ALIL pseudoknot: a 129-nucleotide RNA sequence from Gordonia bronchialis. Its family is annotated with positive regulation of translational frameshifting in the Gene Ontology.
[Rfam]
RNA sequence: GGCUUUUUUCGCCGCGGAGAUCGACCGCCCACAGCGCUAAUUGUGGAGUUCGUUGCCGCCUUUCGCGGCGAACACGGGGUCGAUCCGACCUGCGAGGCCCUGCGAGAUACGGCCGCCCAGAUCGCUCCG
Numbered sequence: 001g002g003c004u005u006u007u008u009u010c011g012c013c014g015c016g017g018a019g020a021u022c023g024a025c026c027g028c029c030c031a032c033a034g035c036g037c038u039a040a041u042u043g044u045g046g047a048g049u050u051c052g053u054u055g056c057c058g059c060c061u062u063u064c065g066c067g068g069c070g071a072a073c074a075c076g077g078g079g080u081c082g083a084u085c086c087g088a089c090c091u092g093c094g095a096g097g098c099c100c101u102g103c104g105a106g107a108u109a110c111g112g113c114c115g116c117c118c119a120g121a122u123c124g125c126u127c128c129g
Stems, first nucleotide, its partner, number of pairs: 014028004075129005086124002090120003